Rfam assigns this 66-nucleotide RNA from Leptocoma aspasia to the family "mir-8/mir-141/mir-200 microRNA precursor family". Pairs were carried over by alignment from the consensus structure, which was predicted with RNAalifold.
RNA sequence: CUCAGCAUCUUACUGGGCAGCAUUGGAUGGAUUCGGUUUCUAAUACUGCCUGGUAAUGAUGAUGGG
Numbered sequence: 001c002u003c004a005g006c007a008u009c010u011u012a013c014u015g016g017g018c019a020g021c022a023u024u025g026g027a028u029g030g031a032u033u034c035g036g037u038u039u040c041u042a043a044u045a046c047u048g049c050c051u052g053g054u055a056a057u058g059a060u061g062a063u064g065g066g
Stems, first nucleotide, its partner, number of pairs: 002065003006061004010056011022044006
About this RNA: The literature on the family includes a 2001 paper in Science by Lagos-Quintana et al., "Identification of novel genes coding for small expressed RNAs".